[Rfam]
RNA sequence: AAAACCUUUAAACCAGUCCAGAGAGGCUGUAAGGAGUAGGAUAUAAUUACAGGAACUUUUAUGUGGUUUUAUAACUUCUUACAGUAGUAAGAAGUUUUUUUUAUU
Number, nucleotide and partner (000 for none) at each position: 001a000002a000003a000004a000005c034006c033007u032008u031009u000010a000011a000012a000013c000014c029015a028016g027017u026018c025019c000020a000021g000022a000023g000024a000025g018026g017027c016028u015029g014030u000031a008032a007033g006034g005035a000036g000037u000038a000039g000040g000041a000042u000043a000044u000045a068046a067047u066048u065049a064050c063051a062052g000053g060054a059055a000056c000057u000058u000059u054060u053061a000062u051063g050064u049065g048066g047067u046068u045069u000070u000071a098072u000073a096074a095075c094076u093077u092078c091079u090080u089081a088082c087083a000084g000085u000086a000087g082088u081089a080090a079091g078092a077093a076094g075095u074096u073097u000098u071099u000100u000101u000102u000103a000104u000105u000
Shown here is a 105-nucleotide RNA from Clostridium fungisolvens, a member of the family "PyrR binding site". Gene Ontology terms of the family: pyrimidine nucleobase transport and pyrimidine nucleobase biosynthetic process. The family's RNA type in Rfam is cis-regulatory element. About the family: This family represents the PyrR binding site and terminator structure.